[Rfam]
A member of the RNA family "int-alpA RNA" from Paraburkholderia ginsengiterrae, 65 nucleotides long. Acidobacteria (1 example), Planctomycetes (1 example), Proteobacteria.
RNA sequence: GCCGCGCCUAGGCUAGCUACCAAACGUCGGGUCCCUCCCCGGCUGGCGCGGCUCCCCAAUGAGGG
Numbered sequence: 001g002c003c004g005c006g007c008c009u010a011g012g013c014u015a016g017c018u019a020c021c022a023a024a025c026g027u028c029g030g031g032u033c034c035c036u037c038c039c040c041g042g043c044u045g046g047c048g049c050g051g052c053u054c055c056c057c058a059a060u061g062a063g064g065g
Base pairs, nucleotide, nucleotide: 001052002051003050004049005048006047007046008045011021012020027042028041029040030039031038033065034064035063036062037061